[Rfam]
RNA sequence: AGCUUUGCGCAGUGGCGGUAUCGUAACCAAUGAGGUUUAUCUGAGGUGCGAUUAUUGCUUUUUGAAAACUUUUCCCAAUACCCCGUCUAGUCGUCGUGAAAUACCGACGGCAACGACAAUUUUUGUUGGCCCGUUCCAGGG
Numbered sequence: 001a002g003c004u005u006u007g008c009g010c011a012g013u014g015g016c017g018g019u020a021u022c023g024u025a026a027c028c029a030a031u032g033a034g035g036u037u038u039a040u041c042u043g044a045g046g047u048g049c050g051a052u053u054a055u056u057g058c059u060u061u062u063u064g065a066a067a068a069c070u071u072u073u074c075c076c077a078a079u080a081c082c083c084c085g086u087c088u089a090g091u092c093g094u095c096g097u098g099a100a101a102u103a104c105c106g107a108c109g110g111c112a113a114c115g116a117c118a119a120u121u122u123u124u125g126u127u128g129g130c131c132c133g134u135u136c137c138a139g140g141g
Stems, first nucleotide, its partner, number of pairs: 020052005026047003034042002085117003088113001090111007130141003

Overview:
U4 spliceosomal RNA: a 141-nucleotide RNA sequence from Homarus americanus. The family is grouped with related families in Rfam's "U4 clan". The family's consensus secondary structure is taken from published work.